[Rfam]
RNA sequence: ACAUUAUCAGCAACAGCGCUUGCUACAGUUU
Numbered sequence: 001a002c003a004u005u006a007u008c009a010g011c012a013a014c015a016g017c018g019c020u021u022g023c024u025a026c027a028g029u030u031u
Stems, first nucleotide, its partner, number of pairs: 001031001003029003007025001009024005014018001
RNA: Iron response element II